[Rfam]
RNA sequence: CUAACCCGCCCGCGUCAUCUGGGGAGUAGCCAGCCGUCCAAUUGGACGGGCCACCGUGUCAACAUACUCGGCCGAGAGGUCGUGGUGCGGUGGAAGCGGGAGACCGCUUGGGCGAGACCAAUGGCAUCGCAUCCUUCGUCCGGGCCGGGCGGCGGGUGUCGAUGUCCGUUGGAAUCGCAGCGCCGCC
Numbered sequence: 001c002u003a004a005c006c007c008g009c010c011c012g013c014g015u016c017a018u019c020u021g022g023g024g025a026g027u028a029g030c031c032a033g034c035c036g037u038c039c040a041a042u043u044g045g046a047c048g049g050g051c052c053a054c055c056g057u058g059u060c061a062a063c064a065u066a067c068u069c070g071g072c073c074g075a076g077a078g079g080u081c082g083u084g085g086u087g088c089g090g091u092g093g094a095a096g097c098g099g100g101a102g103a104c105c106g107c108u109u110g111g112g113c114g115a116g117a118c119c120a121a122u123g124g125c126a127u128c129g130c131a132u133c134c135u136u137c138g139u140c141c142g143g144g145c146c147g148g149g150c151g152g153c154g155g156g157u158g159u160c161g162a163u164g165u166c167c168g169u170u171g172g173a174a175u176c177g178c179a180g181c182g183c184c185g186c187c
Base pairs, nucleotide, nucleotide: 034049035048036047052092053091054090055089056088057087058086059085060084061083069082070081071080072079073078098187099186
Shown here is a 187-nucleotide RNA sequence from Sphingopyxis bauzanensis, a member of the family "Manganese Mn2+ riboswitch aptamer (yybP-ykoY)". NCBI's taxonomy places the organism under Bacteria, Pseudomonadota, Sphingomonadales, Sphingopyxidaceae, Sphingopyxis. Rfam describes the family as follows. This RNA was originally discovered in E. coli during a large scale screen and was named SraF. The family was later found to exist upstream of related families of protein genes in many bacteria, including the the yybP and ykoK genes in B. subtilis. It scores 48 bits against the family's covariance model.